RNA sequence: CUCACGGCUUCGUUAGCCGAAUUCUUAUUGCCGCCCGAUUUUCGCCAACCGCGCGCCAAGCCCGGUUGCGAUAACACCACCACUGCGUUGGCCCGGUCCCCUCGGUUUCGGAUUCCUCAGCCCCCAGCCCCCCGAAGCAGUUGGGAUCGGGCCUGUACGCAGAACCUCAAUCCCCCUCCUGGGCCGACGCAAGUUGGUCCUUUU
Numbered sequence: 001c002u003c004a005c006g007g008c009u010u011c012g013u014u015a016g017c018c019g020a021a022u023u024c025u026u027a028u029u030g031c032c033g034c035c036c037g038a039u040u041u042u043c044g045c046c047a048a049c050c051g052c053g054c055g056c057c058a059a060g061c062c063c064g065g066u067u068g069c070g071a072u073a074a075c076a077c078c079a080c081c082a083c084u085g086c087g088u089u090g091g092c093c094c095g096g097u098c099c100c101c102u103c104g105g106u107u108u109c110g111g112a113u114u115c116c117u118c119a120g121c122c123c124c125c126a127g128c129c130c131c132c133c134g135a136a137g138c139a140g141u142u143g144g145g146a147u148c149g150g151g152c153c154u155g156u157a158c159g160c161a162g163a164a165c166c167u168c169a170a171u172c173c174c175c176c177u178c179c180u181g182g183g184c185c186g187a188c189g190c191a192a193g194u195u196g197g198u199c200c201u202u203u204u
Base pairs, nucleotide, nucleotide: 037168039051042048083162084161085160086159087158088157090153091152092151093150094149095148096147097146098145099144100143103140105138106137107136108135109134110133111132120128121127181200182199183198184197185196186195187194188193
Dot-bracket structure: ....................................(.(..(.....)..)...............................((((((.(((((((((((..(.(((((((........((.....))...))))))).)..)))))))))))...)))))).....)............((((((((....))))))))....
Rfam assigns this 204-nucleotide RNA sequence from Rhodopseudomonas palustris to the family "Bradyrhizobiaceae sRNA BjrC174".
It is one of the family's seed sequences.
The family's RNA type in Rfam is small RNA.
Lineage of the source: Bacteria > Pseudomonadati > Hyphomicrobiales > Nitrobacteraceae > Rhodopseudomonas palustris.